[Rfam]
Nucleotides: 075
Stems, first nucleotide, its partner, number of pairs: 008018004039060009
Number, partner (000 for none) and nucleotide at each position: 001000g002000g003000g004000g005000c006000g007000g008018g009017c010016c011015u012000u013000u014000c015011a016010g017009g018008c019000a020000u021000c022000c023000u024000c025000u026000c027000c028000c029000a030000a031000a032000c033000u034000u035000u036000u037000c038000c039060g040059g041058g042057c043056c044055g045054g046053c047052g048000u049000u050000u051000u052047c053046g054045c055044c056043g057042g058041c059040c060039c061000u062000u063000u064000u065000u066000u067000u068000g069000c070000g071000u072000u073000c074000g075000g
Notes
A member of the RNA family "Makes More Granules Regulator RNA (mmgR)" from Novosphingobium sp. Fuku2-ISO-50, 75 nucleotides long. The literature on the family includes a 2016 paper in Mol Phylogenet Evol by Lagares et al., "Phylogenetic distribution and evolutionary pattern of an alpha-proteobacterial small RNA gene that controls polyhydroxybutyrate accumulation in Sinorhizobium meliloti". The match comes from Rfam's covariance-model search (48 bits). About the family: SuhB later renamed mmgR (makes more granules regulator) was a putative non-coding RNA found multiple times in the Agrobacterium tumefaciens genome and related alpha-proteobacteria. Other non-coding RNAs uncovered in the same analysis include: speF, ybhL, metA, and serC.Several studies inSinorhizobium meliloti showed that suhB element is indeed a non-coding RNA:firstly it was detected on Northern blot and called Sm8RNA, secondly in an RNAseq study referred to as SmelC689.The mutant phenotype's (strain lacking the small RNA) cytoplasm contains higher content of polyhydroxybutyrate (PBH)storage granules than wild type strain. The sRNA is required to limit the PBH intracellular accumulation when the nitrogen-fixing Sinorhizobium meliloti is under condition of surplus carbon in relation to nitrogen. The family's RNA type in Rfam is small RNA. Pairs were carried over by alignment from the consensus structure.